[Rfam]
RNA: MIR474 microRNA precursor family
Nucleotides: 088
Base pairs, nucleotide, nucleotide: 001086002085004083005082006081007080008079009078011076012075013074014073015072016071017070018069019068020067021066022065023064024063025062026061027060028059029058030057032055033054034053035052036051037050038049039048040047
Number, partner (000 for none) and nucleotide at each position: 001086c002085c003000a004083a005082u006081a007080a008079a009078u010000u011076a012075u013074u014073g015072g016071g017070g018069a019068c020067g021066g022065u023064u024063g025062a026061u027060g028059a029058g030057u031000c032055g033054u034053c035052c036051c037050c038049a039048a040047u041000a042000a043000g044000a045000u046000u047040a048039u049038u050037g051036g052035g053034g054033a055032c056000g057030a058029c059028u060027c061026a062025u063024c064023a065022a066021c067020c068019g069018u070017c071016c072015c073014c074013a075012a076011u077000a078009a079008u080007u081006u082005a083004u084000u085002g086001g087000g088000g